[Rfam]
RNA sequence: AGGUCAUUUCAAAGAGGGCUUGCGGGACUAAAACCAAGAGCUCUUAACGCUGUGACCAAAUAUUGGAGUUCUCCAUAGGAUGUAAUAGUUACUCAAUAGUGCUAUGUUUUCCUGAGGAGAUACAAGA
Numbered sequence: 001a002g003g004u005c006a007u008u009u010c011a012a013a014g015a016g017g018g019c020u021u022g023c024g025g026g027a028c029u030a031a032a033a034c035c036a037a038g039a040g041c042u043c044u045u046a047a048c049g050c051u052g053u054g055a056c057c058a059a060a061u062a063u064u065g066g067a068g069u070u071c072u073c074c075a076u077a078g079g080a081u082g083u084a085a086u087a088g089u090u091a092c093u094c095a096a097u098a099g100u101g102c103u104a105u106g107u108u109u110u111c112c113u114g115a116g117g118a119g120a121u122a123c124a125a126g127a
Stems, first nucleotide, its partner, number of pairs: 002057006014045008026035001070120005077113004085105004090101004
This 127-nucleotide RNA from Neogale vison belongs to the Rfam family "Small nucleolar RNA SNORA25". The organism belongs to Neogale, within Eukaryota. Rfam describes the family as follows. ACA25 is a member of the H/ACA class of snoRNA that guide the sites of modification of uridines to pseudouridines. A search with the family's covariance model found it, with a score of 136 bits. The family's consensus secondary structure was predicted with RNAfold. By type it is an H/ACA-box small nucleolar RNA.